[Rfam]
RNA sequence: AUCGAUAAACGGCAAACCUAUCGAAAGGUAGGGACGCAAAGCUUCAGGCCUAAGGGAACCGCCUACGGCAGCUGGGCUACCGAA
Numbered sequence: 001a002u003c004g005a006u007a008a009a010c011g012g013c014a015a016a017c018c019u020a021u022c023g024a025a026a027g028g029u030a031g032g033g034a035c036g037c038a039a040a041g042c043u044u045c046a047g048g049c050c051u052a053a054g055g056g057a058a059c060c061g062c063c064u065a066c067g068g069c070a071g072c073u074g075g076g077c078u079a080c081c082g083a084a
Stems, first nucleotide, its partner, number of pairs: 012037002017032006040078004045074003048069003055063002

This 84-nucleotide sequence from Paenibacillus oceani belongs to the Rfam family "c-di-GMP-I riboswitch aptamer". Rfam's curators write: GEMM was predicted in a large-scale screen for bacterial structured RNA regulatory elements. Genes associated with GEMM are involved in a diverse array of functions, including chemotaxis regulation, signal transduction, secretion and chitin. Lineage of the source: Bacteria > Bacillati > Caryophanales > Paenibacillaceae > Paenibacillus. The base pairs follow the family's consensus structure, which is taken from published work.